[Rfam]
RNA sequence: GAUACGAAAAGCCGUAUGAAAUAGAUAUAUUGGACCCGGGGGCAGUACCCGGCGCCUCCACCAGAUUUUAUACCACGGGGGCGAGACAGGUUUGACAGUGUAUAGUAAAGAUAUGUGGGCUGUAUCCGGCGGGAUACCACCGUUAUCGGUUCGACUUAAAUAAACGCAAAUGAUAAUUUUGCACCUGUUGCCGUAGCUGCUUAA
Numbered sequence: 001g002a003u004a005c006g007a008a009a010a011g012c013c014g015u016a017u018g019a020a021a022u023a024g025a026u027a028u029a030u031u032g033g034a035c036c037c038g039g040g041g042g043c044a045g046u047a048c049c050c051g052g053c054g055c056c057u058c059c060a061c062c063a064g065a066u067u068u069u070a071u072a073c074c075a076c077g078g079g080g081g082c083g084a085g086a087c088a089g090g091u092u093u094g095a096c097a098g099u100g101u102a103u104a105g106u107a108a109a110g111a112u113a114u115g116u117g118g119g120c121u122g123u124a125u126c127c128g129g130c131g132g133g134a135u136a137c138c139a140c141c142g143u144u145a146u147c148g149g150u151u152c153g154a155c156u157u158a159a160a161u162a163a164a165c166g167c168a169a170a171u172g173a174u175a176a177u178u179u180u181g182c183a184c185c186u187g188u189u190g191c192c193g194u195a196g197c198u199g200c201u202u203a204a
Stems, first nucleotide, its partner, number of pairs: 001126005014114004026102003030098003036052005053083007127142003
Shown here is a 204-nucleotide RNA from an uncultured Alphaproteobacteria bacterium, a member of the family "permuted transfer-messenger RNA".
From the family's description: Bacterial tmRNA, also known as 10Sa RNA or SsrA, is named for its dual tRNA and mRNA-like properties.
For this family Rfam cites "Phylogenetic analysis of tmRNA secondary structure" (Williams and Bartel, RNA, 1996).
The family's RNA type in Rfam is non-coding RNA gene.